[Rfam]
RNA sequence: UUCUUGGGGGGAAAGGUUAUGACGAUUAUGGUACAAAUCUAUCCAUAAGCGUAUAGCUUUUCCCCUUAAGUG
Numbered sequence: 001u002u003c004u005u006g007g008g009g010g011g012a013a014a015g016g017u018u019a020u021g022a023c024g025a026u027u028a029u030g031g032u033a034c035a036a037a038u039c040u041a042u043c044c045a046u047a048a049g050c051g052u053a054u055a056g057c058u059u060u061u062c063c064c065c066u067u068a069a070g071u072g
Base pairs, nucleotide, nucleotide: 003070004069005068006067007066009064010063011062013060014059017056018055019054020053021052026048027047028046029045030044

This 72-nucleotide sequence from Cotesia typhae belongs to the Rfam family "mir-965 microRNA precursor family". NCBI's taxonomy places the organism under Eukaryota, Metazoa, Pterygota, Neoptera, Cotesia. The match comes from Rfam's covariance-model search (67 bits). The literature on the family includes a 2012 paper in Bioorg Khim by Huang et al., "The regulation of silkworm fibroin L chain production by miRNA-965 and miRNA-1926 in insect cells".